[Rfam]
RNA sequence: CAAGUUAGUCACCACAGCAGAAGUGCUCAUGAUGCAACCCUGUCAGAUGCCAAGGAAUCUGUGAAUUCUGCU
Numbered sequence: 001c002a003a004g005u006u007a008g009u010c011a012c013c014a015c016a017g018c019a020g021a022a023g024u025g026c027u028c029a030u031g032a033u034g035c036a037a038c039c040c041u042g043u044c045a046g047a048u049g050c051c052a053a054g055g056a057a058u059c060u061g062u063g064a065a066u067u068c069u070g071c072u
Stems, first nucleotide, its partner, number of pairs: 008040001016072007023035003044061005050055001
RNA: Mammalian CPEB3 ribozyme